RNA sequence: CGGGUGACGGCCGCUGGCGGCCACCUCGUGGCGGGGCGAAUCUGUCCCUGCCCCGCGUGCCAGCUCUGGAGAACGCUCUCGGGGAUCAUCCCUUCCUCACGGGAGGCCAACCCCUGGGGCGCCACCUGGUGCGCGCCGCCCUGCUGGCGUCAGAGCAGUGACGAUGACGCGCUUC
Numbered sequence: 001c002g003g004g005u006g007a008c009g010g011c012c013g014c015u016g017g018c019g020g021c022c023a024c025c026u027c028g029u030g031g032c033g034g035g036g037c038g039a040a041u042c043u044g045u046c047c048c049u050g051c052c053c054c055g056c057g058u059g060c061c062a063g064c065u066c067u068g069g070a071g072a073a074c075g076c077u078c079u080c081g082g083g084g085a086u087c088a089u090c091c092c093u094u095c096c097u098c099a100c101g102g103g104a105g106g107c108c109a110a111c112c113c114c115u116g117g118g119g120c121g122c123c124a125c126c127u128g129g130u131g132c133g134c135g136c137c138g139c140c141c142u143g144c145u146g147g148c149g150u151c152a153g154a155g156c157a158g159u160g161a162c163g164a165u166g167a168c169g170c171g172c173u174u175c
Base pairs, nucleotide, nucleotide: 016140017139018138019137020136021135055134056133057132058131059130060129061128062127063126067124068123069122074121075120076119077118078117
Shown here is a 175-nucleotide RNA sequence from Streptomyces sp. YIM 121038, a member of the family "gntR-DTE RNA".
It is annotated as a small RNA.
Taxonomically the source falls in Streptomyces (Bacteria, Actinomycetes, Kitasatosporales, Streptomycetaceae).